RNA sequence: CCCACCUGGGUCCGUGGUUGCGCCGAGCCGGGGCACCCGGCUCGGCUAGCCGAUGCCAGCCGCAGGCGAAACGGCCCACGUAAGGCGACUUUUCGUCGACCGAUCACGGUGCGGCUUAGGGGUAAGACCUGCCCCCCCGGAGGUCCAGAUGUCCUCCGUCAGGGGAGAAGGGGAGUAGUGGCACUAGCGCUGCGAGACCCUCAGCAGGCGAAUGUGGGGACGAAGACCAGGUCGGCCAGGUGGG
Numbered sequence: 001c002c003c004a005c006c007u008g009g010g011u012c013c014g015u016g017g018u019u020g021c022g023c024c025g026a027g028c029c030g031g032g033g034c035a036c037c038c039g040g041c042u043c044g045g046c047u048a049g050c051c052g053a054u055g056c057c058a059g060c061c062g063c064a065g066g067c068g069a070a071a072c073g074g075c076c077c078a079c080g081u082a083a084g085g086c087g088a089c090u091u092u093u094c095g096u097c098g099a100c101c102g103a104u105c106a107c108g109g110u111g112c113g114g115c116u117u118a119g120g121g122g123u124a125a126g127a128c129c130u131g132c133c134c135c136c137c138c139g140g141a142g143g144u145c146c147a148g149a150u151g152u153c154c155u156c157c158g159u160c161a162g163g164g165g166a167g168a169a170g171g172g173g174a175g176u177a178g179u180g181g182c183a184c185u186a187g188c189g190c191u192g193c194g195a196g197a198c199c200c201u202c203a204g205c206a207g208g209c210g211a212a213u214g215u216g217g218g219g220a221c222g223a224a225g226a227c228c229a230g231g232u233c234g235g236c237c238a239g240g241u242g243g244g
Stems, first nucleotide, its partner, number of pairs: 001244009012235003015229005053215003056066001058116007075109002080104001084100001086098004107222001128208005133165004169201004178193002181188002
raiA RNA: a 244-nucleotide sequence from Bailinhaonella thermotolerans. The family's consensus secondary structure is taken from published work. Rfam classes the family as a riboswitch.